Rfam assigns this 89-nucleotide RNA sequence from Thermodesulfobacterium commune to the family "Selenocysteine transfer RNA".
[Rfam]
RNA sequence: GGAGGCGUGAGGAGGCUGGUGCCUCUCCCGGGCUUCAAACCCGGUGCGCCCCCAAAAGGGGUGGGUGGGUUCAAUUCCCAUACGCCUCC
Numbered sequence: 001g002g003a004g005g006c007g008u009g010a011g012g013a014g015g016c017u018g019g020u021g022c023c024u025c026u027c028c029c030g031g032g033c034u035u036c037a038a039a040c041c042c043g044g045u046g047c048g049c050c051c052c053c054a055a056a057a058g059g060g061g062u063g064g065g066u067g068g069g070u071u072c073a074a075u076u077c078c079c080a081u082a083c084g085c086c087u088c089c
Stems, first nucleotide, its partner, number of pairs: 001089009011026006028044005047063005066080004
Lineage of the source: Bacteria > Pseudomonadati > Thermodesulfobacteriales > Thermodesulfobacterium > Thermodesulfobacterium commune.